[Rfam]
RNA sequence: AGAGUAAGUUAGCCUAAUCCUUGCUUAAUAAAAUAAGCAAGAGCGGGGGAACCAAAUUCGGGGCGUAUCUCUAUCGAUGUAAAUAGAGAAGGACAUCUCUCAGUCCUAGCCCGUCAGCUAACCUCGUCGGCUUUGAGAGGAGACUGA
Number, nucleotide and partner (000 for none) at each position: 001a000002g000003a000004g000005u000006a000007a000008g000009u000010u000011a132012g131013c130014c129015u000016a000017a000018u042019c041020c000021u000022u000023g000024c000025u000026u000027a000028a000029u000030a000031a000032a000033a000034u000035a000036a000037g000038c000039a000040a000041g019042a018043g127044c126045g125046g124047g123048g122049g000050a000051a000052c000053c060054a000055a000056a000057u000058u000059c000060g053061g112062g111063g110064c000065g000066u000067a000068u000069c088070u087071c086072u085073a084074u083075c000076g000077a000078u000079g000080u000081a000082a000083a074084u073085a072086g071087a070088g069089a000090a000091g106092g105093a104094c103095a000096u000097c000098u000099c000100u000101c000102a000103g094104u093105c092106c091107u000108a000109g000110c063111c062112c061113g000114u000115c000116a000117g000118c000119u000120a000121a000122c048123c047124u046125c045126g044127u043128c000129g014130g013131c012132u011133u000134u000135g000136a000137g000138a000139g000140g000141a000142g000143a000144c000145u000146g000147a000